[Rfam]
RNA sequence: CGAGUGGGCGGGGUGACCGCUGGCACGGUUCGCGGUUCCCGCGUUUCCGGCUGGAGGAAAGUCCGGGCUCCGAAGGGCAGGAUGGUCGAUAACGUCGACCGGUCGUGAGGCCAGGGAAAGUGCAGCAGAGAGCAGACCGCCGAACGGUGACGCCGCUUGCGGUGUCAUGCGUGGUGAGGGUGAAACGGUGCGGUAAGAGCGCACCAGCGAUCAGGGUGACUUGAUCGGCUCGGUAAACCCCAUCCGGAGCUAGACCAAACAGGGUGCAUCAUCGAGGCGGCCCGCCUCGUUAUCGACAUCCGGGUAGGUCGCAGUGGAGGCGACGAGCAAUCGUCGUGCACAGAUAAAUGGUCACCGUCGAUGCUCGCAUCGGCACAGAACCCGGCUUACAAGCCCACUCGUUUU
Numbered sequence: 001c002g003a004g005u006g007g008g009c010g011g012g013g014u015g016a017c018c019g020c021u022g023g024c025a026c027g028g029u030u031c032g033c034g035g036u037u038c039c040c041g042c043g044u045u046u047c048c049g050g051c052u053g054g055a056g057g058a059a060a061g062u063c064c065g066g067g068c069u070c071c072g073a074a075g076g077g078c079a080g081g082a083u084g085g086u087c088g089a090u091a092a093c094g095u096c097g098a099c100c101g102g103u104c105g106u107g108a109g110g111c112c113a114g115g116g117a118a119a120g121u122g123c124a125g126c127a128g129a130g131a132g133c134a135g136a137c138c139g140c141c142g143a144a145c146g147g148u149g150a151c152g153c154c155g156c157u158u159g160c161g162g163u164g165u166c167a168u169g170c171g172u173g174g175u176g177a178g179g180g181u182g183a184a185a186c187g188g189u190g191c192g193g194u195a196a197g198a199g200c201g202c203a204c205c206a207g208c209g210a211u212c213a214g215g216g217u218g219a220c221u222u223g224a225u226c227g228g229c230u231c232g233g234u235a236a237a238c239c240c241c242a243u244c245c246g247g248a249g250c251u252a253g254a255c256c257a258a259a260c261a262g263g264g265u266g267c268a269u270c271a272u273c274g275a276g277g278c279g280g281c282c283c284g285c286c287u288c289g290u291u292a293u294c295g296a297c298a299u300c301c302g303g304g305u306a307g308g309u310c311g312c313a314g315u316g317g318a319g320g321c322g323a324c325g326a327g328c329a330a331u332c333g334u335c336g337u338g339c340a341c342a343g344a345u346a347a348a349u350g351g352u353c354a355c356c357g358u359c360g361a362u363g364c365u366c367g368c369a370u371c372g373g374c375a376c377a378g379a380a381c382c383c384g385g386c387u388u389a390c391a392a393g394c395c396c397a398c399u400c401g402u403u404u405u
Base pairs, nucleotide, nucleotide: 001401002400003399004398005397006396007395008394009393011390012356013355014354015353016352017351018350020054021053022052023051024050026049027048028047059388060387061386063385064384065383066382067381068249069248070247071246075283076282077281078280080245081244082243083242084241085099086098087097088096089095100114101112102111103110104109115240116239120238121237122234123233137179138178139175140174141173144172145171146170187205188204189203190202191201192200207229208227209226210225211224212223213222214221215220253310254309255308256307262301263300264299265298266297274288275287276286277285278284319339320337321336322335323334324333325332326331
The record is a 405-nucleotide sequence from Rhodopirellula baltica, which matches "Bacterial RNase P class A" in Rfam. Lineage of the source: Bacteria > Pseudomonadati > Planctomycetota > Pirellulaceae > Rhodopirellula baltica.